The family of this 85-nucleotide RNA from Nocardia sp. SYP-A9097 is "Actinobacteria sRNA Ms_AS-4". Rfam 15.1 lists 207 matches to the family in 131 species. Rfam classes the family as a small RNA.
[Rfam]
RNA sequence: CUUCGCGCUGCUGAAACGGUCCGGGUCGUCUCCAAACUCGGCGAGCACCCGGGCACCCGGGCACCGAGGAUCAUUGCCAGGCCGG
Numbered sequence: 001c002u003u004c005g006c007g008c009u010g011c012u013g014a015a016a017c018g019g020u021c022c023g024g025g026u027c028g029u030c031u032c033c034a035a036a037c038u039c040g041g042c043g044a045g046c047a048c049c050c051g052g053g054c055a056c057c058c059g060g061g062c063a064c065c066g067a068g069g070a071u072c073a074u075u076g077c078c079a080g081g082c083c084g085g
Stems, first nucleotide, its partner, number of pairs: 009043005018038003023033003056081002060078004